Overview
The record is a 179-nucleotide sequence from Desulfuromonas soudanensis, which matches "6S / SsrS RNA" in Rfam. The base pairs follow the family's consensus structure, which is taken from published work. NCBI's taxonomy places the organism under Bacteria, Thermodesulfobacteriota, Desulfuromonadales, Desulfuromonadaceae, Desulfuromonas. Rfam classes the family as a non-coding RNA gene. E. coli 6S RNA was the first non coding RNA to be sequenced, but its function was unknown until recently. It consists of 184 nucleotides that fold into an extended hairpin structure with a large single-stranded internal bulge. The literature on the family includes a 2000 paper in Cell by Wassarman and Storz, "6S RNA regulates E. coli RNA polymerase activity".

RNA sequence: UGCUCUCUGCCCUGCAGGUGAGGUCAGAACGCCCAGGCGGAAUAAUAUUUUUUUGGGAUCGCUUCAGGUCUGUUGUGUGCCAGCCCACCCCGAGUGGGACGCCUGAUACGGAAACAAGGGAUCCCCCCUGUUGGUUCUCGCUGAGAGGCCCAACGACCCACGGCUGGCGUGGAGAGCAC
Number, nucleotide and partner (000 for none) at each position: 001u000002g177003c176004u175005c174006u173007c172008u171009g170010c169011c000012c166013u000014g164015c163016a000017g000018g161019u160020g000021a000022g000023g000024u000025c000026a000027g000028a000029a000030c000031g149032c148033c147034c143035a142036g141037g000038c140039g139040g000041a000042a000043u000044a000045a000046u000047a000048u000049u000050u000051u000052u000053u000054u000055g125056g124057g123058a000059u121060c120061g000062c118063u117064u116065c000066a000067g000068g000069u112070c111071u110072g109073u108074u000075g000076u000077g000078u000079g102080c101081c000082a000083g000084c098085c097086c096087a095088c094089c000090c000091c000092g000093a000094g088095u087096g086097g085098g084099a000100c000101g080102c079103c000104u000105g000106a000107u000108a073109c072110g071111g070112a069113a000114a000115c000116a064117a063118g062119g000120g060121a059122u000123c057124c056125c055126c000127c000128c000129u000130g000131u000132u000133g000134g000135u000136u000137c000138u000139c039140g038141c036142u035143g034144a000145g000146a000147g033148g032149c031150c000151c000152a000153a000154c000155g000156a000157c000158c000159c000160a019161c018162g000163g015164c014165u000166g012167g000168c000169g010170u009171g008172g007173a006174g005175a004176g003177c002178a000179c000